[Rfam]
RNA sequence: GGAUUACAGUGUCAAAAGGUCUUAUCCCACCUGUGCUUGCACAAUGGUGGGAAAACGACCUUGGGACACGCCCGGAUAUGAGCAUAAAAGUGGAGCGUAAGCUUCACGAUAUGCGAAUAAUCGGGGUGGAUUGCGAAAGUGCGAAGCGCGUAGCAAUCUGUGUAAUAA
Numbered sequence: 001g002g003a004u005u006a007c008a009g010u011g012u013c014a015a016a017a018g019g020u021c022u023u024a025u026c027c028c029a030c031c032u033g034u035g036c037u038u039g040c041a042c043a044a045u046g047g048u049g050g051g052a053a054a055a056c057g058a059c060c061u062u063g064g065g066a067c068a069c070g071c072c073c074g075g076a077u078a079u080g081a082g083c084a085u086a087a088a089a090g091u092g093g094a095g096c097g098u099a100a101g102c103u104u105c106a107c108g109a110u111a112u113g114c115g116a117a118u119a120a121u122c123g124g125g126g127u128g129g130a131u132u133g134c135g136a137a138a139g140u141g142c143g144a145a146g147c148g149c150g151u152a153g154c155a156a157u158c159u160g161u162g163u164a165a166u167a168a
Base pairs, nucleotide, nucleotide: 003166004165005164006163007162010068011067012066013065016062017061018060019059020058021057023055025053026051027050028049029048030047031046032043033042034041035040072124073123074122075121077119078118079117082114083113084112085111090107091106092105093104094103095102096101128159129158130157131156132155133154134153139149140148141147142146